[Rfam]
RNA sequence: GCAAGUAUGAAAGGUGAUUGCGAGCGUAAGUUCGAGGAAAGUCCGAGCUCCGCAGGGCAGGAUGCCGGAUAACGUCCGGCGUGGGUAACCAUAGGGAAUAGUGCCACAGAAAAGUAAACCGCCGCUUUAGCGGUAAGGGUGGAACGGUGUCGGUAAGAGCGCACCAGCAAUGCAGUAAUGUAUUGGCUCGGUAAACCCCAUCCGGAGCAAGGCCGAAUAGGAAAGGGAUAAGGGUGGCCCGCCUACCUUUCGGGUUGUGCCGCUUGAGCCUAUAGGCAACUAUAGGCCUAGAAAGAUAAUCACCACUGCGCAAGCAGAACAGAACUCGGCUUAUUGAUUGCUUGCUUAA
Number, nucleotide and partner (000 for none) at each position: 001g345002c344003a343004a342005g341006u340007a339008u000009g000010a000011a334012a000013g304014g303015u302016g301017a300018u299019u298020g000021c034022g033023a032024g031025c030026g000027u000028a000029a000030g025031u024032u023033c022034g021035a000036g000037g000038a000039a332040a331041g330042u000043c329044c328045g327046a326047g325048c207049u206050c205051c204052g000053c000054a000055g240056g239057g238058c237059a000060g203061g202062a201063u200064g199065c079066c078067g077068g076069a075070u000071a000072a000073c000074g000075u069076c068077c067078g066079g065080c094081g092082u091083g090084g089085g000086u000087a000088a000089c084090c083091a082092u081093a000094g080095g198096g197097a000098a000099u000100a000101g196102u195103g192104c191105c190106a000107c000108a000109g000110a000111a000112a000113a000114g000115u000116a000117a000118a000119c138120c137121g134122c133123c132124g131125c130126u000127u000128u000129a000130g125131c124132g123133g122134u121135a000136a000137g120138g119139g000140u000141g000142g000143a000144a000145c000146g165147g164148u163149g162150u000151c161152g160153g000154u000155a000156a000157g000158a000159g000160c152161g151162c149163a148164c147165c146166a000167g187168c185169a184170a183171u182172g181173c180174a179175g000176u000177a000178a000179u174180g173181u172182a171183u170184u169185g168186g000187c167188u000189c000190g105191g104192u103193a000194a000195a102196c101197c096198c095199c064200a063201u062202c061203c060204g051205g050206a049207g048208c000209a000210a000211g261212g260213c259214c257215g000216a000217a000218u000219a000220g000221g251222a250223a249224a248225g247226g246227g000228a000229u000230a000231a000232g244233g243234g242235u241236g000237g058238c057239c056240c055241g235242c234243c233244u232245a000246c226247c225248u224249u223250u222251c221252g000253g000254g000255u000256u000257g214258u000259g213260c212261c211262g000263c000264u000265u000266g000267a000268g287269c286270c285271u284272a283273u282274a281275g280276g000277c000278a000279a000280c275281u274282a273283u272284a271285g270286g269287c268288c000289u000290a000291g000292a000293a000294a000295g000296a000297u000298a019299a018300u017301c016302a015303c014304c013305a000306c000307u000308g000309c000310g000311c000312a000313a000314g000315c000316a000317g000318a000319a000320c000321a000322g000323a000324a000325c047326u046327c045328g044329g043330c041331u040332u039333a000334u011335u000336g000337a000338u000339u007340g006341c005342u004343u003344g002345c001346u000347u000348a000349a000
RNA: Bacterial RNase P class A
Organism: Veillonella criceti